[Rfam]
RNA sequence: AGGAGUUCUCAGGGCGGGGUGAGAUUCCCCACCGGCGGUUAUAGCCCGCGAGCGCUUCUCCCGGUGGGAGAGGGUCAGCAGAUCCGGUGAAAUUCCGGGGCCGACGGUAUAGUCCGGAUGAAAGAGAACCUGU
Numbered sequence: 001a002g003g004a005g006u007u008c009u010c011a012g013g014g015c016g017g018g019g020u021g022a023g024a025u026u027c028c029c030c031a032c033c034g035g036c037g038g039u040u041a042u043a044g045c046c047c048g049c050g051a052g053c054g055c056u057u058c059u060c061c062c063g064g065u066g067g068g069a070g071a072g073g074g075u076c077a078g079c080a081g082a083u084c085c086g087g088u089g090a091a092a093u094u095c096c097g098g099g100g101c102c103g104a105c106g107g108u109a110u111a112g113u114c115c116g117g118a119u120g121a122a123a124g125a126g127a128a129c130c131u132g133u
Stems, first nucleotide, its partner, number of pairs: 003131001005129006017029003031113002033103002035049004044101002052079002083099005105116003